Shown here is a 57-nucleotide sequence, a member of the family "pemK RNA". The base pairs follow the family's consensus structure, which is taken from published work. By type it is a cis-regulatory element.
[Rfam]
RNA sequence: AUGAUGAUACUUACACGAGAGUGUCCGGGCGAGAGCGCGGGGGUGAGAUUCCCAUGA
Number, nucleotide and partner (000 for none) at each position: 001a000002u000003g000004a000005u000006g000007a000008u000009a000010c000011u000012u054013a024014c023015a022016c021017g000018a000019g000020a000021g016022u015023g014024u013025c040026c039027g038028g000029g036030c035031g000032a000033g000034a000035g030036c029037g000038c027039g026040g025041g053042g052043g051044u000045g000046a000047g000048a000049u000050u000051c043052c042053c041054a012055u000056g000057a000